[Rfam]
RNA sequence: UGGCGGGUGGGGAGUCCCGGGUGUCACUAACCCUAAUGGCUGCCGCCGCGCUCCCCGCGCCCGCCCGCUGUUUUACUCGCUGACUUUCAGCGGGCGAGGGGAGCAGCUGGGAGGGGGUGGGGGGAGUAGGACGAGAAGGGGGUCUACCAUCAAAAAACGUCAGCGAGGGGGCUCCUCACCCCGGCCCGCCCUGGGGUCCCCAUGUCCCCCCCCUGCCCCGCAGCCGGGGGCCCGCCGCGGAGGCUCCCUCCGCCGCACCGUCCCCAGGCCGCGGUCGGCCGGCUCCCGCCACUGCCGCCGCGAAGAGUUCGCCUCUGUCAGCCUCGGCGGCGGCCGGGAGAAGAGGGGCGCGCCCCCCGCCUCCUCCU
Numbered sequence: 001u002g003g004c005g006g007g008u009g010g011g012g013a014g015u016c017c018c019g020g021g022u023g024u025c026a027c028u029a030a031c032c033c034u035a036a037u038g039g040c041u042g043c044c045g046c047c048g049c050g051c052u053c054c055c056c057g058c059g060c061c062c063g064c065c066c067g068c069u070g071u072u073u074u075a076c077u078c079g080c081u082g083a084c085u086u087u088c089a090g091c092g093g094g095c096g097a098g099g100g101g102a103g104c105a106g107c108u109g110g111g112a113g114g115g116g117g118u119g120g121g122g123g124g125a126g127u128a129g130g131a132c133g134a135g136a137a138g139g140g141g142g143u144c145u146a147c148c149a150u151c152a153a154a155a156a157a158c159g160u161c162a163g164c165g166a167g168g169g170g171g172c173u174c175c176u177c178a179c180c181c182c183g184g185c186c187c188g189c190c191c192u193g194g195g196g197u198c199c200c201c202a203u204g205u206c207c208c209c210c211c212c213c214u215g216c217c218c219c220g221c222a223g224c225c226g227g228g229g230g231c232c233c234g235c236c237g238c239g240g241a242g243g244c245u246c247c248c249u250c251c252g253c254c255g256c257a258c259c260g261u262c263c264c265c266a267g268g269c270c271g272c273g274g275u276c277g278g279c280c281g282g283c284u285c286c287c288g289c290c291a292c293u294g295c296c297g298c299c300g301c302g303a304a305g306a307g308u309u310c311g312c313c314u315c316u317g318u319c320a321g322c323c324u325c326g327g328c329g330g331c332g333g334c335c336g337g338g339a340g341a342a343g344a345g346g347g348g349c350g351c352g353c354c355c356c357c358c359g360c361c362u363c364c365u366c367c368u
Stems, first nucleotide, its partner, number of pairs: 002186003005181014050104005062096009079164006085157003194368003229354003233350004248338003252334003258327003270302005276297004281290003304316004

Shown here is a 368-nucleotide RNA from Phaetusa simplex, a member of the family "Vertebrate telomerase RNA". The match comes from Rfam's covariance-model search (114 bits). The family is grouped with related families in Rfam's "Telomerase clan". Rfam describes the family as follows. Telomerase is a ribonucleoprotein reverse transcriptase that synthesises telomeric DNA. Telomerase RNAs differ greatly in sequence and structure between vertebrates, ciliates and yeasts, but they share a 5' pseudoknot structure close to the template sequence. Vertebrate telomerase RNAs have a 3' H/ACA snoRNA-like domain. Gene Ontology terms of the family: telomerase activity, telomere maintenance via telomerase and telomerase catalytic core complex. The source organism's lineage runs through Eukaryota, Bilateria, Gnathostomata, Coelurosauria and Phaetusa. A reference for the family is Chen et al. (2000), "Secondary structure of vertebrate telomerase RNA", Cell.